[Rfam]
Rhodo-rpoB RNA: a 95-nucleotide RNA from Thetidibacter halocola.
It is annotated as a cis-regulatory element.
The base pairs follow the family's consensus structure, which is taken from published work.
Lineage of the source: Bacteria > Pseudomonadati > Alphaproteobacteria > Roseobacteraceae > Thetidibacter.
A search with the family's covariance model found it, with a score of 60 bits.

Nucleotides: 095
Stems, first nucleotide, its partner, number of pairs: 001043005010031008069095002071092001072090005
Number, partner (000 for none) and nucleotide at each position: 001043g002042g003041a004040u005039c006000g007000a008000g009000u010031g011030g012029c013028g014027c015026g016025c017024g018000g019000u020000g021000g022000g023000a024017c025016g026015c027014g028013c029012g030011c031010c032000g033000a034000g035000a036000a037000u038000g039005g040004a041003u042002c043001c044000g045000g046000u047000a048000g049000c050000c051000a052000g053000c054000c055000g056000u057000c058000a059000c060000u061000g062000a063000c064000a065000g066000a067000a068000c069095g070094c071092c072090c073089g074088c075087u076086g077000u078000g079000g080000c081000c082000c083000c084000g085000g086076c087075a088074g089073c090072g091000c092071g093000c094070g095069c